[Rfam]
RNA sequence: AUAUUACUCUGAUUACCGAGCUUGUUCGCCUAAGUUAUGAAAAAUAAUAUGGCGGCAAUGCCAGCGAUUAAUUGCUCAGGGAUCCGCGGGAAACGGUUGGUCCUUCCUUAUUUGAAAAGGUAUCUAUGUCAUCAAUUC
Numbered sequence: 001a002u003a004u005u006a007c008u009c010u011g012a013u014u015a016c017c018g019a020g021c022u023u024g025u026u027c028g029c030c031u032a033a034g035u036u037a038u039g040a041a042a043a044a045u046a047a048u049a050u051g052g053c054g055g056c057a058a059u060g061c062c063a064g065c066g067a068u069u070a071a072u073u074g075c076u077c078a079g080g081g082a083u084c085c086g087c088g089g090g091a092a093a094c095g096g097u098u099g100g101u102c103c104u105u106c107c108u109u110a111u112u113u114g115a116a117a118a119g120g121u122a123u124c125u126a127u128g129u130c131a132u133c134a135a136u137u138c
Stems, first nucleotide, its partner, number of pairs: 003132002006129001011124003015121003020061002023058001026055005034048004063076005079104006086097002089094001105115002
RNA: Molybdenum/Tungsten riboswitch aptamer (Moco RNA motif)